[Rfam]
RNA sequence: CUGGGCGGCUGAAUUAGAGAUCGGCGCCUGUUCUAUCUAUAAUAUUUUGGAGUAAAUCAUGUCUCUAAGCGUUGAAGCGAAAGCGAAAAUUGUUGCGGAAUUCGGUCGUGGCACC
Number, nucleotide and partner (000 for none) at each position: 001c000002u000003g000004g000005g000006c000007g000008g025009c024010u023011g022012a021013a000014u000015u000016a000017g000018a000019g000020a000021u012022c011023g010024g009025c008026g000027c000028c000029u000030g000031u000032u000033c000034u000035a000036u000037c000038u000039a000040u000041a000042a000043u000044a000045u000046u069047u068048u067049g066050g065051a064052g063053u000054a000055a000056a000057u000058c000059a000060u000061g000062u000063c052064u051065c050066u049067a048068a047069g046070c000071g000072u000073u000074g000075a000076a000077g000078c000079g000080a000081a000082a000083g000084c000085g000086a000087a000088a000089a000090u000091u000092g000093u000094u000095g000096c000097g000098g000099a000100a000101u000102u000103c000104g000105g000106u000107c000108g000109u000110g000111g000112c000113a000114c000115c000